[Rfam]
RNA sequence: GAACUGUAGAGUUUGAUCCUGGCUCAGAUUGAACGCUGGCGGCAUGCCUUACACAUGCAAGUCGAACGGUAACAGGUCUUCGGACGCUGACGAGUGGCGAACGGGUGAGUAAUACAUCGGAACGUGCCCAGUCGUGGGGGAUAACUACUCGAAAGAGUAGCUAAUACCGCAUACGAUCUGAGGAUGAAAGCGGGGGACCUUCGGGCCUCGCGCGAUUGGAGCGGCCGAUGGCAGAUUAGGUAGUUGGUGGGAUAAAAGCUUACCAAGCCGACGAUCUGUAGCUGGUCUGAGAGGACGACCAGCCACACUGGGACUGAGACACGGCCCAGACUCCUACGGGAGGCAGCAGUGGGGAAUUUUGGACAAUGGGCGAAAGCCUGAUCCAGCAAUGCCGCGUGCAGGAUGAAGGCCUUCGGGUUGUAAACUGCUUUUGUACGGAACGAAAAAGCUUCUCCUAAUACGAGAGGCCCAUGACGGUACCGUAAGAAUAAGCACCGGCUAACUACGUGCCAGCAGCCGCGGUAAUACGUAGGGUGCGAGCGUUAAUCGGAAUUACUG
Number, nucleotide and partner (000 for none) at each position: 001g000002a000003a000004c000005u000006g000007u000008a000009g025010a024011g023012u022013u021014u000015g000016a000017u000018c000019c000020u000021g013022g012023c011024u010025c009026a000027g548028a547029u546030u545031g000032a544033a543034c542035g541036c540037u539038g000039g395040c394041g393042g392043c391044a390045u388046g387047c353048c000049u000050u000051a000052c351053a350054c349055a000056u348057g347058c346059a000060a000061g098062u097063c096064g000065a000066a095067c094068g000069g091070u090071a000072a088073c000074a000075g000076g085077u084078c083079u000080u000081c000082g000083g078084a077085c076086g000087c000088u072089g000090a070091c069092g000093a000094g067095u066096g063097g062098c061099g000100a000101a000102c000103g000104g000105g306106u305107g304108a000109g000110u000111a000112a000113u000114a000115c230116a229117u228118c227119g226120g225121a000122a000123c223124g222125u000126g000127c000128c219129c218130a217131g216132u215133c214134g213135u000136g170137g000138g168139g167140g000141a000142u000143a000144a000145c160146u159147a158148c157149u156150c155151g000152a000153a000154a000155g150156a149157g148158u147159a146160g145161c000162u000163a000164a000165u000166a000167c139168c138169g000170c136171a000172u000173a000174c000175g000176a185177u184178c183179u000180g000181a000182g000183g178184a177185u176186g000187a000188a000189a000190g211191c210192g209193g208194g207195g206196g000197a000198c000199c000200u000201u000202c000203g000204g000205g000206c195207c194208u193209c192210g191211c190212g000213c134214g133215a132216u131217u130218g129219g128220a000221g000222c124223g123224g000225c120226c119227g118228a117229u116230g115231g000232c278233a277234g276235a000236u000237u000238a000239g269240g268241u267242a000243g000244u266245u265246g264247g263248u262249g261250g260251g259252a000253u000254a000255a000256a000257a000258g000259c251260u250261u249262a248263c247264c246265a245266a244267g241268c240269c239270g000271a000272c000273g000274a000275u000276c234277u233278g232279u000280a000281g303282c302283u301284g300285g296286u295287c294288u293289g000290a000291g000292a000293g288294g287295a286296c285297g000298a000299c000300c284301a283302g282303c281304c107305a106306c105307a000308c329309u328310g327311g326312g325313a000314c000315u000316g000317a000318g000319a000320c000321a000322c000323g000324g000325c312326c311327c310328a309329g308330a000331c342332u341333c340334c339335u000336a000337c000338g000339g334340g333341a332342g331343g000344c000345a000346g058347c057348a056349g054350u053351g052352g000353g047354g000355a000356a000357u000358u000359u385360u000361g384362g383363a382364c000365a000366a000367u380368g379369g378370g377371c376372g000373a000374a000375a000376g371377c370378c369379u368380g367381a000382u363383c362384c361385a359386g000387c046388a045389a000390u044391g043392c042393c041394g040395c039396g000397u000398g428399c427400a426401g425402g000403a000404u000405g000406a000407a000408g419409g418410c417411c416412u000413u000414c000415g000416g411417g410418u409419u408420g000421u000422a000423a000424a000425c401426u400427g399428c398429u000430u000431u000432u000433g000434u484435a483436c482437g481438g480439a000440a000441c000442g475443a000444a000445a000446a000447a000448g468449c467450u466451u465452c464453u463454c000455c000456u000457a000458a000459u000460a000461c000462g000463a453464g452465a451466g450467g449468c448469c000470c000471a000472u000473g000474a000475c442476g000477g000478u000479a000480c438481c437482g436483u435484a434485a000486g000487a000488a000489u000490a000491a000492g537493c536494a535495c534496c533497g000498g000499c000500u000501a000502a000503c532504u531505a530506c529507g528508u000509g000510c000511c000512a000513g520514c519515a000516g000517c000518c000519g514520c513521g000522g000523u000524a000525a000526u000527a000528c507529g506530u505531a504532g503533g496534g495535u494536g493537c492538g000539a037540g036541c035542g034543u033544u032545a030546a029547u028548c027549g000550g000551a000552a000553u000554u000555a000556c000557u000558g000
RNA: Bacterial small subunit ribosomal RNA, nucleotides 1 to 558
Organism: Delftia acidovorans